A member of the RNA family "MIR161 microRNA precursor family" from Arabidopsis lyrata, 141 nucleotides long. The family's consensus secondary structure was predicted with RNAalifold. Its family is annotated with RISC complex and miRNA-mediated post-transcriptional gene silencing in the Gene Ontology. A search with the family's covariance model found it, with a score of 140 bits.

RNA sequence: GUUAUUGUGUCGAUCAAUGCAUUGAAAGUGACUACAUCGGGGUUUUGUUUUUUUGUUGCUCCCACGAUCGAAUCGAUAUGAGGAAGAUGAAAAAUUAAUCAACCCCGGUUUAGUCACUUUCACUGCAUUAAUCAAUGCAUU
Numbered sequence: 001g002u003u004a005u006u007g008u009g010u011c012g013a014u015c016a017a018u019g020c021a022u023u024g025a026a027a028g029u030g031a032c033u034a035c036a037u038c039g040g041g042g043u044u045u046u047g048u049u050u051u052u053u054u055g056u057u058g059c060u061c062c063c064a065c066g067a068u069c070g071a072a073u074c075g076a077u078a079u080g081a082g083g084a085a086g087a088u089g090a091a092a093a094a095u096u097a098a099u100c101a102a103c104c105c106c107g108g109u110u111u112a113g114u115c116a117c118u119u120u121c122a123c124u125g126c127a128u129u130a131a132u133c134a135a136u137g138c139a140u141u
Base pairs, nucleotide, nucleotide: 006139007138008137009136012133013132014131016129017128018127019126020125021124023122024121025120026119027118028117029116030115031114032113033112034111036109037108038107039106040105041104042103043092044091045090047088048087049086050085051084052083053082